[Rfam]
Nucleotides: 099
Stems, first nucleotide, its partner, number of pairs: 001099005010087004014082005019076003026055002029053007039093005061072003
Number, partner (000 for none) and nucleotide at each position: 001099g002098g003097c004096a005095g006000a007000g008000u009000a010087g011086a012085u013084g014082u015081c016080a017079u018078g019076c020075g021074u022000u023000a024000g025000a026055g027054u028000g029053c030052u031051u032050a033049a034048g035047g036000a037000u038000g039093g040092g041091a042090c043089g044000u045000u046000g047035c048034c049033u050032u051031a052030a053029g054027a055026c056000g057000a058000a059000a060000u061072g062071c063070c064000u065000g066000u067000a068000g069000a070063g071062g072061c073000u074021g075020c076019g077000g078018u079017a080016u081015g082014g083000u084013c085012a086011u087010c088000g089043c090042g091041u092040c093039c094000g095005c096004u097003g098002u099001c